[Rfam]
RNA sequence: GAAGGUCUCAAUUUCCCUCAAAGGCUUCCAGUAUUCCAGGCUAAUAUAAAUGUUACUAAUUAGGUAUAUGCGUGGGAAUUCUGGAAGCCUUUGAGAUAAAUUGAAGGCUU
Numbered sequence: 001g002a003a004g005g006u007c008u009c010a011a012u013u014u015c016c017c018u019c020a021a022a023g024g025c026u027u028c029c030a031g032u033a034u035u036c037c038a039g040g041c042u043a044a045u046a047u048a049a050a051u052g053u054u055a056c057u058a059a060u061u062a063g064g065u066a067u068a069u070g071c072g073u074g075g076g077a078a079u080u081c082u083g084g085a086a087g088c089c090u091u092u093g094a095g096a097u098a099a100a101u102u103g104a105a106g107g108c109u110u
Stems, first nucleotide, its partner, number of pairs: 003109002006106001008104007017095003021091011033079005
RNA: MIR477 microRNA precursor family